[Rfam]
RNA: c-di-AMP riboswitch aptamer (ydaO/yuaA leader)
RNA sequence: GACCGGGCACCGCCUAAUCACCACACGGCGCGCAGCACCGGCGCCCGAGGUGAGCCGGGGACCCACCGCAGUUCUGGGGUGAGUUCCCCCGCGGCCGGCUCGCCGGCCCGGGGGAUAGGGCCAGUCUUCCCAGCCCGAACCCGUCAGCUAACUCGGUAGGCGGUCGUAGCGGAAGAA
Numbered sequence: 001g002a003c004c005g006g007g008c009a010c011c012g013c014c015u016a017a018u019c020a021c022c023a024c025a026c027g028g029c030g031c032g033c034a035g036c037a038c039c040g041g042c043g044c045c046c047g048a049g050g051u052g053a054g055c056c057g058g059g060g061a062c063c064c065a066c067c068g069c070a071g072u073u074c075u076g077g078g079g080u081g082a083g084u085u086c087c088c089c090c091g092c093g094g095c096c097g098g099c100u101c102g103c104c105g106g107c108c109c110g111g112g113g114g115a116u117a118g119g120g121c122c123a124g125u126c127u128u129c130c131c132a133g134c135c136c137g138a139a140c141c142c143g144u145c146a147g148c149u150a151a152c153u154c155g156g157u158a159g160g161c162g163g164u165c166g167u168a169g170c171g172g173a174a175g176a177a
Stems, first nucleotide, its partner, number of pairs: 011162004018053005054157006064076002077142003085115007118136004